[Rfam]
RNA sequence: GCCGUGAAAGCCCUCGAUUCUUUGUCUAUCGGUAGACGGCCUACGCACGGGAACGACGGACAUUUUUUAACUACUUGAUAUUCCCUCUUUACCUCGCUCCUUAAGUUGACGUCUAUGCGCGCAGGCGGGAAUCUAGCGCGCUUUCUAUCAAGGUUUGUUUUUAAUCCUCAUUCCCCCUGCCGCGGUGACGGGGCCUAA
Number, nucleotide and partner (000 for none) at each position: 001g000002c000003c000004g000005u000006g000007a000008a000009a000010g194011c193012c192013c191014u000015c108016g107017a106018u105019u000020c000021u000022u000023u038024g037025u036026c035027u034028a033029u000030c000031g000032g000033u028034a027035g026036a025037c024038g023039g000040c000041c000042u000043a000044c000045g000046c000047a000048c000049g101050g100051g099052a098053a000054c096055g095056a094057c000058g093059g092060a000061c000062a000063u000064u000065u000066u000067u000068u000069a000070a000071c000072u000073a000074c000075u000076u000077g000078a000079u000080a000081u000082u000083c000084c000085c000086u000087c000088u000089u000090u000091a000092c059093c058094u056095c055096g054097c000098u052099c051100c050101u049102u000103a000104a000105g018106u017107u016108g015109a000110c190111g189112u188113c187114u000115a000116u184117g183118c182119g181120c000121g180122c179123a178124g177125g176126c000127g175128g174129g173130a172131a171132u170133c000134u000135a159136g158137c157138g156139c000140g154141c153142u152143u151144u150145c000146u000147a000148u000149c000150a144151a143152g142153g141154u140155u000156u138157g137158u136159u135160u000161u000162u000163a000164a000165u000166c000167c000168u000169c000170a132171u131172u130173c129174c128175c127176c125177c124178u123179g122180c121181c119182g118183c117184g116185g000186u000187g113188a112189c111190g110191g013192g012193g011194c010195c000196u000197a000198a000
Coxiella burnetii sRNA 3: a 198-nucleotide RNA sequence from Coxiella burnetii. It is one of the family's seed sequences. Lineage of the source: Bacteria > Pseudomonadati > Pseudomonadota > Coxiellaceae > Coxiella burnetii. Rfam 15.1 lists 19 matches to the family in 2 species. Rfam's curators write: In bacteria small regulatory RNAs are activated during stress and virulence conditions. Coxiella burnetii small RNAs (CbSRs 1, 11, 12, and 14) are encoded within intergenic region IGR. CbSRs 2, 3, 4 and 9 are located antisense to identified ORFs. CbSRs are up-regulated during intracellular growth in host cells.